[Rfam]
RNA sequence: UGCCCUCGGUAAACAUUCAACGCUGUCGGUGAGUUUGAGCAUCUGUCCAAAACCAUCGACCGUUAAAUGUACCCUGGGGGCCA
Numbered sequence: 001u002g003c004c005c006u007c008g009g010u011a012a013a014c015a016u017u018c019a020a021c022g023c024u025g026u027c028g029g030u031g032a033g034u035u036u037g038a039g040c041a042u043c044u045g046u047c048c049a050a051a052a053c054c055a056u057c058g059a060c061c062g063u064u065a066a067a068u069g070u071a072c073c074c075u076g077g078g079g080g081c082c083a
Base pairs, nucleotide, nucleotide: 001083002082004079005078006077007076008075014069015068016067017066019064020063021062022061025060026059027058028057029056030055031054033053034052035051036050